[Rfam]
RNA sequence: UCCCCCACAGUCCUCCGGUCCUCGUUUCUCGCAAGGGAUCCUAUUGUAGGCACUCGCAUCAUUUGGUUACCCUCCCAUAUGCCGCUCUCGAGCCUGUAACAGGAUCUCGUGAAUGCCGCAGCCGGAUUAUGGUGGAUAGUAACGCGCCCUGUAUAGGACGUACCAAGCGGGCGGGUGAACGAGGCUCGGAACUUAACCCUAAGAAGAUAU
Numbered sequence: 001u002c003c004c005c006c007a008c009a010g011u012c013c014u015c016c017g018g019u020c021c022u023c024g025u026u027u028c029u030c031g032c033a034a035g036g037g038a039u040c041c042u043a044u045u046g047u048a049g050g051c052a053c054u055c056g057c058a059u060c061a062u063u064u065g066g067u068u069a070c071c072c073u074c075c076c077a078u079a080u081g082c083c084g085c086u087c088u089c090g091a092g093c094c095u096g097u098a099a100c101a102g103g104a105u106c107u108c109g110u111g112a113a114u115g116c117c118g119c120a121g122c123c124g125g126a127u128u129a130u131g132g133u134g135g136a137u138a139g140u141a142a143c144g145c146g147c148c149c150u151g152u153a154u155a156g157g158a159c160g161u162a163c164c165a166a167g168c169g170g171g172c173g174g175g176u177g178a179a180c181g182a183g184g185c186u187c188g189g190a191a192c193u194u195a196a197c198c199c200u201a202a203g204a205a206g207a208u209a210u
Base pairs, nucleotide, nucleotide: 009193010192011191015189016188017187018186
The record is a 210-nucleotide part of an RNA from Fusarium acutatum, which matches "Ascomycota telomerase RNA" in Rfam. For this family Rfam cites "The common ancestral core of vertebrate and fungal telomerase RNAs" (Qi et al., Nucleic Acids Res, 2013). Lineage of the source: Eukaryota > Opisthokonta > sordariomyceta > Fusarium > Fusarium fujikuroi species complex. Its Rfam clan is "Telomerase clan". A search with the family's covariance model found it, with a score of 338 bits. It is annotated as a non-coding RNA gene. Gene Ontology terms of the family: telomere maintenance via telomerase, telomerase catalytic core complex and telomerase activity.